[Rfam]
RNA: Bacterial large subunit ribosomal RNA, nucleotides 9 to 550
Organism: Brasilonema sennae
RNA sequence: AAUGAAAGGCGAAUGGUGGAUACCUAGGCACACAGAGGCGAAGAAGGACGUGGUGACCGACGAAACGCUCCGGGGAGCUGGAAGCAAGCAUAGAUCCGGAGAUGUCCGAAUGGGGCAACCCCAAGAACUGCCUGUUGAAUAUAUAGACAGGAAAGAGCCAACCCAGCGAAUUGAAACAUCUUAGUAGCUGGAGGAAGAGAAAUCAAAAGAGAUUCCCUAAGUAGUGGUGAGCGAAAGGGGAAAAGCCUAAACCAAAAAGCUUGCUUUUUGGGGUAGUGGGACAGCAACAAGGAAUCCUUAUGUUAGACGAAGCAGCGAAAAACUGUACCAGAGAAGGUGAGAGUCCUGUAGUCAAAAACAAAAAGAUACUAGCUGUAUCCCGAGUAGCAUGGGGCACGUGAAAUCCCAUGUGAAUCAGCGAGGACCAUCUCGUAAGGCUAAAUACUACUGUGUGACCGAUAGCGAAACAGUACCGCGAGGGAAAGGUGAAAAGAACCCCAAUGAGGGGAGUGAAAUAGAACAUGAAACCAUUCGCCCACAAG
Numbered sequence: 001a002a003u004g005a006a007a008g009g010c011g012a013a014u015g016g017u018g019g020a021u022a023c024c025u026a027g028g029c030a031c032a033c034a035g036a037g038g039c040g041a042a043g044a045a046g047g048a049c050g051u052g053g054u055g056a057c058c059g060a061c062g063a064a065a066c067g068c069u070c071c072g073g074g075g076a077g078c079u080g081g082a083a084g085c086a087a088g089c090a091u092a093g094a095u096c097c098g099g100a101g102a103u104g105u106c107c108g109a110a111u112g113g114g115g116c117a118a119c120c121c122c123a124a125g126a127a128c129u130g131c132c133u134g135u136u137g138a139a140u141a142u143a144u145a146g147a148c149a150g151g152a153a154a155g156a157g158c159c160a161a162c163c164c165a166g167c168g169a170a171u172u173g174a175a176a177c178a179u180c181u182u183a184g185u186a187g188c189u190g191g192a193g194g195a196a197g198a199g200a201a202a203u204c205a206a207a208a209g210a211g212a213u214u215c216c217c218u219a220a221g222u223a224g225u226g227g228u229g230a231g232c233g234a235a236a237g238g239g240g241a242a243a244a245g246c247c248u249a250a251a252c253c254a255a256a257a258a259g260c261u262u263g264c265u266u267u268u269u270g271g272g273g274u275a276g277u278g279g280g281a282c283a284g285c286a287a288c289a290a291g292g293a294a295u296c297c298u299u300a301u302g303u304u305a306g307a308c309g310a311a312g313c314a315g316c317g318a319a320a321a322a323c324u325g326u327a328c329c330a331g332a333g334a335a336g337g338u339g340a341g342a343g344u345c346c347u348g349u350a351g352u353c354a355a356a357a358a359c360a361a362a363a364a365g366a367u368a369c370u371a372g373c374u375g376u377a378u379c380c381c382g383a384g385u386a387g388c389a390u391g392g393g394g395c396a397c398g399u400g401a402a403a404u405c406c407c408a409u410g411u412g413a414a415u416c417a418g419c420g421a422g423g424a425c426c427a428u429c430u431c432g433u434a435a436g437g438c439u440a441a442a443u444a445c446u447a448c449u450g451u452g453u454g455a456c457c458g459a460u461a462g463c464g465a466a467a468c469a470g471u472a473c474c475g476c477g478a479g480g481g482a483a484a485g486g487u488g489a490a491a492a493g494a495a496c497c498c499c500a501a502u503g504a505g506g507g508g509a510g511u512g513a514a515a516u517a518g519a520a521c522a523u524g525a526a527a528c529c530a531u532u533c534g535c536c537c538a539c540a541a542g
Stems, first nucleotide, its partner, number of pairs: 008536009023486002027457002029454007036446002038158002046107003049062003068101007077089003112121003128155002131151006162193001163191005173180002203210002213442001214241005224232002244439004252271007278381003282375004292369001294367003298363002301360004306353003312326004329333001335347003387411008418433005473480002496508004